[Rfam]
RNA sequence: UGAGUUGAGUUAGGGGGUCAUUGUAGAAGCGUGCUCGUCGCGACCCCUGCCAGCCCUUUUCAGGGCUGCAAUUCUGCG
Numbered sequence: 001u002g003a004g005u006u007g008a009g010u011u012a013g014g015g016g017g018u019c020a021u022u023g024u025a026g027a028a029g030c031g032u033g034c035u036c037g038u039c040g041c042g043a044c045c046c047c048u049g050c051c052a053g054c055c056c057u058u059u060u061c062a063g064g065g066c067u068g069c070a071a072u073u074c075u076g077c078g
Stems, first nucleotide, its partner, number of pairs: 014047006022078007029041003051068007

The family of this 78-nucleotide RNA sequence from Parnassius apollo is "Mammalian CPEB3 ribozyme".
NCBI's taxonomy places the organism under Eukaryota, Neoptera, Obtectomera, Papilionidae, Parnassius.
Rfam describes the family as follows. The mammalian CPEB3 ribozyme is a self cleaving RNA located in the second intron of the CPEB3 gene which belongs to a family of genes regulating messenger RNA polyadenylation.